[Rfam]
RNA sequence: UUGACUUGCAAAUGAUAAUGAUUAUUAUUGCAAGCAACUGGUCGCGAGAUCAGUCGAUGGACCAGAGACCUUAGGUCGGUCUUCUGGACUAUCUCCUCAUCAGGCUAAUCACGGUUUUUGACCCGGCUUUUUGCCGGGUCUUUUUUUU
Numbered sequence: 001u002u003g004a005c006u007u008g009c010a011a012a013u014g015a016u017a018a019u020g021a022u023u024a025u026u027a028u029u030g031c032a033a034g035c036a037a038c039u040g041g042u043c044g045c046g047a048g049a050u051c052a053g054u055c056g057a058u059g060g061a062c063c064a065g066a067g068a069c070c071u072u073a074g075g076u077c078g079g080u081c082u083u084c085u086g087g088a089c090u091a092u093c094u095c096c097u098c099a100u101c102a103g104g105c106u107a108a109u110c111a112c113g114g115u116u117u118u119u120g121a122c123c124c125g126g127c128u129u130u131u132u133g134c135c136g137g138g139u140c141u142u143u144u145u146u147u148u
Stems, first nucleotide, its partner, number of pairs: 035056001037054007062087004066082002069078001095104003120140008
The family of this 148-nucleotide sequence from Pseudomonas fluorescens is "PrrF RNA". Rfam's curators put it in the seed alignment. Lineage of the source: Bacteria > Pseudomonadati > Gammaproteobacteria > Pseudomonadales > Pseudomonas fluorescens. The family has 18 seed sequences and 107 matches in Rfam 15.1. PrrF RNA is a small RNA involved in iron homeostasis and is found exclusively in Pseudomonas species.